[Rfam]
This 115-nucleotide RNA from Jeotgalibacillus sp. R-1-5s-1 belongs to the Rfam family "BsrF". A reference for the family is Saito et al. (2008), "Novel small RNA-encoding genes in the intergenic regions of Bacillus subtilis", Gene.

RNA sequence: GCGAUGAGCUCGUUUGCAUAAGUCGGAUAAGGAUCCUUUUCGGAGGAACACGUUGUGGAGCGUGCCUUAACGCCGCAAAUUUAGAGGAAGAGGCCUGGACAUUUGUCCAGGCCUC
Numbered sequence: 001g002c003g004a005u006g007a008g009c010u011c012g013u014u015u016g017c018a019u020a021a022g023u024c025g026g027a028u029a030a031g032g033a034u035c036c037u038u039u040u041c042g043g044a045g046g047a048a049c050a051c052g053u054u055g056u057g058g059a060g061c062g063u064g065c066c067u068u069a070a071c072g073c074c075g076c077a078a079a080u081u082u083a084g085a086g087g088a089a090g091a092g093g094c095c096u097g098g099a100c101a102u103u104u105g106u107c108c109a110g111g112c113c114u115c
Base pairs, nucleotide, nucleotide: 014078015077016076017075024072025071028069029068030067031066032065036043049064050063052061053060054059090115091114092113093112094111095110096109097108098107

Annotation:
By type it is a small RNA. The match comes from Rfam's covariance-model search (56 bits).